[Rfam]
RNA: Streptococcus sRNA SpF25
Organism: Streptococcus salivarius
Nucleotides: 102
Stems, first nucleotide, its partner, number of pairs: 004060002007057005016052003022049004030041003065101001067099013
Number, partner (000 for none) and nucleotide at each position: 001000g002000c003000a004060u005059g006000g007057g008056a009055u010054g011053g012000c013000c014000u015000u016052u017051c018050u019000a020000a021000a022049u023048g024047g025046u026000u027000u028000u029000u030041u031040g032039g033000c034000c035000a036000a037000u038000u039032c040031u041030a042000u043000u044000u045000c046025a047024c048023c049022a050018a051017g052016a053011c054010u055009a056008u057007c058000a059005c060004a061000a062000u063000c064000a065101u066000g067099c068098a069097a070096a071095a072094a073093g074092c075091a076090a077089c078088g079087g080000c081000a082000u083000a084000a085000a086000a087079c088078c089077g090076u091075u092074g093073c094072u095071u096070u097069u098068u099067g100000g101065a102000g